[Rfam]
RNA sequence: CGGUGAAAUUGCGCCGAUGCGCAGUCAAAUAUUGCUUUCGCAAUGUGAAAUAUGGCUGCGCCAUGUGAAAUACGCC
Numbered sequence: 001c002g003g004u005g006a007a008a009u010u011g012c013g014c015c016g017a018u019g020c021g022c023a024g025u026c027a028a029a030u031a032u033u034g035c036u037u038u039c040g041c042a043a044u045g046u047g048a049a050a051u052a053u054g055g056c057u058g059c060g061c062c063a064u065g066u067g068a069a070a071u072a073c074g075c076c
Stems, first nucleotide, its partner, number of pairs: 008025007029046006050066007
Shown here is a 76-nucleotide RNA from Clostridium sp. CAG:226, a member of the family "Gut-1 RNA". Taxonomically the source falls in Clostridium (Bacteria, Bacillati, Bacillota, Clostridia). The family has 38 seed sequences and 51 matches in Rfam 15.1.